[Rfam]
Nucleotides: 350
Base pairs, nucleotide, nucleotide: 001346002345003344005342006341007340008339009338011335012316013315014314015313016312017311018310020046021045022044023043024042025041026040051333052332053331055330056329057328058327059326060220061219062218063217067252068251069250070249073216074215075214076213077212079091080090081089082088093107094105095104096103097102108211109210113209114208115205116204117203129152130151131148132147133146134145135144136143137142160178161177163175164174165173180200181198182197183196184195185194186193187192224271225270226269227268233262234261235260236259237258243257244256245255246254247253279299280298281297282296284295285294286293287292
Number, partner (000 for none) and nucleotide at each position: 001346c002345g003344a004000g005342c006341a007340g008339a009338c010000c011335g012316g013315a014314c015313a016312g017311c018310u019000g020046c021045g022044g023043a024042u025041a026040c027000a028000g029000c030000g031000g032000g033000a034000a035000a036000c037000g038000g039000c040026g041025u042024a043023u044022c045021u046020g047000a048000g049000g050000a051333a052332a053331g054000u055330c056329c057328g058327a059326g060220c061219u062218c063217c064000g065000c066000a067252g068251g069250g070249c071000a072000u073216g074215g075214a076213u077212a078000a079091c080090g081089g082088c083000u084000a085000a086000c087000g088082g089081c090080c091079g092000c093107c094105g095104g096103g097102g098000g099000u100000g101000a102097c103096c104095c105094u106000a107093g108211g109210g110000a111000a112000a113209g114208u115205g116204c117203a118000a119000c120000a121000g122000a123000a124000a125000g126000a127000u128000a129152c130151c131148g132147c133146c134145g135144c136143u137142c138000u139000u140000u141000u142137g143136a144135g145134c146133g147132g148131u149000a150000a151130g152129g153000a154000u155000g156000g157000a158000a159000a160178g161177g162000c163175g164174a165173g166000g167000u168000a169000a170000g171000a172000g173165c174164u175163c176000a177161c178160c179000a180200g181198c182197a183196u184195u185194c186193g187192g188000a189000g190000a191000a192187c193186c194185g195184a196183a197182u198181g199000g200180c201000u202000c203117u204116g205115c206000a207000a208114a209113c210109c211108c212077u213076a214075u215074c216073c217063g218062g219061a220060g221000c222000a223000a224271c225270a226269c227268c228000g229000c230000a231000g232000u233262g234261g235260g236259a237258c238000a239000u240000u241000u242000u243257g244256u245255g246254u247253c248000g249070g250069c251068c252067c253247g254246a255245c256244a257243c258237g259236u260235c261234c262233c263000u264000a265000g266000a267000a268227g269226g270225u271224g272000g273000c274000a275000u276000c277000g278000a279299g280298c281297u282296a283000u284295g285294g286293c287292g288000g289000c290000a291000a292287c293286g294285c295284c296282u297281g298280g299279c300000c301000a302000a303000g304000a305000u306000a307000g308000a309000u310018g311017g312016c313015u314014g315013u316012c317000a318000g319000a320000a321000c322000a323000g324000a325000a326059c327058u328057c329056g330055g331053c332052u333051u334000a335011u336000a337000a338009g339008u340007c341006u342005g343000g344003u345002c346001g347000c348000a349000a350000a